The family of this 111-nucleotide RNA from Lentibacillus halodurans is "SAM riboswitch aptamer (S box leader)". The family's consensus secondary structure is taken from published work. From the family's description: The SAM riboswitch is found upstream of a number of genes which code for proteins involved in methionine or cysteine biosynthesis in Gram-positive bacteria. Rfam links the family to the GO term regulation of gene expression.
[Rfam]
RNA sequence: UUCUUAUCCAGAGAGGUGGAGGGAUAUGGCCCGCUGAACCCUCGGCAACAGGUUCUUAUAUGGGAAUACUGUGCCAAUUCCAUCAAGCGUUGUUUGCUUGGAAGAUAAGAA
Numbered sequence: 001u002u003c004u005u006a007u008c009c010a011g012a013g014a015g016g017u018g019g020a021g022g023g024a025u026a027u028g029g030c031c032c033g034c035u036g037a038a039c040c041c042u043c044g045g046c047a048a049c050a051g052g053u054u055c056u057u058a059u060a061u062g063g064g065a066a067u068a069c070u071g072u073g074c075c076a077a078u079u080c081c082a083u084c085a086a087g088c089g090u091u092g093u094u095u096g097c098u099u100g101g102a103a104g105a106u107a108a109g110a111a
Base pairs, nucleotide, nucleotide: 001111002110003109004108005107006106007105008104013043014042015041016040021032022031023030026083027082028081029080044075045074046073047072049071050070052067053066054065055064079103084100085099086098087097088096089095